Shown here is a 48-nucleotide RNA sequence from Novosphingobium chloroacetimidivorans, a member of the family "chrB-b RNA". It scores 43 bits against the family's covariance model.
RNA sequence: UCGGGCUUGAAGCGGACGCCCGUUCAGACGGUCAUCGUCCAAGUCCGC
Numbered sequence: 001u002c003g004g005g006c007u008u009g010a011a012g013c014g015g016a017c018g019c020c021c022g023u024u025c026a027g028a029c030g031g032u033c034a035u036c037g038u039c040c041a042a043g044u045c046c047g048c
Stems, first nucleotide, its partner, number of pairs: 002022005012048005027039005
Rfam classes the family as a cis-regulatory element.
Pairs were carried over by alignment from the consensus structure, which is taken from published work.